[Rfam]
RNA sequence: UCCGAGUCUCAGGGCGGGGUGAAAUUCCCCACCGGUGGUUACAGUCCACGAGCGCGGGACGGGUUUAAAACAUCCGUCCCGGUCAGCAGAAUCGGUGCAAUUCCGAUACCGACGGUUAAAGUCCGGAAGAAAGAGCAAUAGCU
Numbered sequence: 001u002c003c004g005a006g007u008c009u010c011a012g013g014g015c016g017g018g019g020u021g022a023a024a025u026u027c028c029c030c031a032c033c034g035g036u037g038g039u040u041a042c043a044g045u046c047c048a049c050g051a052g053c054g055c056g057g058g059a060c061g062g063g064u065u066u067a068a069a070a071c072a073u074c075c076g077u078c079c080c081g082g083u084c085a086g087c088a089g090a091a092u093c094g095g096u097g098c099a100a101u102u103c104c105g106a107u108a109c110c111g112a113c114g115g116u117u118a119a120a121g122u123c124c125g126g127a128a129g130a131a132a133g134a135g136c137a138a139u140a141g142c143u
Stems, first nucleotide, its partner, number of pairs: 003141001005139001007137001008135003017029003031122002033111002035049004044109002052087002091107005113125003